[Rfam]
RNA: rpsB sRNA
Organism: Rhizobium oryziradicis
Nucleotides: 113
Base pairs, nucleotide, nucleotide: 001088003086005085006084007083008082009081010080011079016045017044024036025035027034053073054072055071056070057069
Number, partner (000 for none) and nucleotide at each position: 001088c002000a003086c004000a005085c006084g007083u008082g009081a010080a011079g012000c013000u014000u015000g016045g017044g018000a019000u020000u021000g022000u023000u024036c025035g026000g027034g028000a029000g030000a031000a032000a033000u034027c035025c036024g037000a038000a039000u040000g041000g042000u043000u044017c045016c046000g047000c048000c049000c050000g051000g052000u053073g054072g055071c056070g057069u058000c059000u060000c061000u062000g063000c064000a065000a066000a067000g068000a069057g070056c071055g072054c073053u074000g075000u076000u077000u078000g079011c080010u081009u082008c083007a084006u085005g086003g087000g088001g089000g090000u091000u092000a093000a094000a095000c096000c097000g098000g099000a100000a101000a102000a103000g104000g105000a106000g107000a108000a109000a110000a111000g112000g113000c